Rfam assigns this 101-nucleotide RNA sequence from Chaetura pelagica to the family "Small nucleolar RNA SNORD125". The match comes from Rfam's covariance-model search (59 bits). NCBI's taxonomy places the organism under Eukaryota, Opisthokonta, Deuterostomia, Dinosauria, Chaetura. A reference for the family is Yang et al. (2006), "snoSeeker: an advanced computational package for screening of guide and orphan snoRNA genes in the human genome", Nucleic Acids Res.

RNA sequence: GCUGGGAACAGUCUCACAUGAUGACCCUUCUCUCUCUGAUGGGCUGUGGUGGUGAUGAUCAUCCAAGCCUCUAAGAAGUUGGCUGAAGAGACUGCUCUGGG
Numbered sequence: 001g002c003u004g005g006g007a008a009c010a011g012u013c014u015c016a017c018a019u020g021a022u023g024a025c026c027c028u029u030c031u032c033u034c035u036c037u038g039a040u041g042g043g044c045u046g047u048g049g050u051g052g053u054g055a056u057g058a059u060c061a062u063c064c065a066a067g068c069c070u071c072u073a074a075g076a077a078g079u080u081g082g083c084u085g086a087a088g089a090g091a092c093u094g095c096u097c098u099g100g101g
Stems, first nucleotide, its partner, number of pairs: 007096001009094007